RNA sequence: AAAAAUAAACUAUAUGUUCAGGGAUCAUUUCUAUAGUUCGCUACUGGAGAAGUUUCUCUGAACCUGCAGAGCACCAGAAACCAUGAGAAGGAGAUGCAGCUUUCUCUCCCGAGUGUGAAGCCGGCUCGGUGUUGCUUCUGCAGCUAUUAGCCACUGAUAAUCGUUCUUCUCUUCCUUUUGGAGAGUAAGAGGGAGAGGGUGUAGUUUGAGUGGU
Numbered sequence: 001a002a003a004a005a006u007a008a009a010c011u012a013u014a015u016g017u018u019c020a021g022g023g024a025u026c027a028u029u030u031c032u033a034u035a036g037u038u039c040g041c042u043a044c045u046g047g048a049g050a051a052g053u054u055u056c057u058c059u060g061a062a063c064c065u066g067c068a069g070a071g072c073a074c075c076a077g078a079a080a081c082c083a084u085g086a087g088a089a090g091g092a093g094a095u096g097c098a099g100c101u102u103u104c105u106c107u108c109c110c111g112a113g114u115g116u117g118a119a120g121c122c123g124g125c126u127c128g129g130u131g132u133u134g135c136u137u138c139u140g141c142a143g144c145u146a147u148u149a150g151c152c153a154c155u156g157a158u159a160a161u162c163g164u165u166c167u168u169c170u171c172u173u174c175c176u177u178u179u180g181g182a183g184a185g186u187a188a189g190a191g192g193g194a195g196a197g198g199g200u201g202u203a204g205u206u207u208g209a210g211u212g213g214u
Stems, first nucleotide, its partner, number of pairs: 002045001005042001006040001008038004020032004054070002059066001080214005099202002102199009113164003123152004128148003131144005167188002169185006
Shown here is a 214-nucleotide RNA from Bos indicus x Bos taurus, a member of the family "Small nucleolar RNA U3". Taxonomically the source falls in Bos (Eukaryota, Deuterostomia, Teleostomi, Euteleostomi). Small nucleolar RNAs (snoRNAs) are involved in the processing and modification of rRNA in the nucleolus. The match comes from Rfam's covariance-model search (127 bits). By type it is a C/D-box small nucleolar RNA.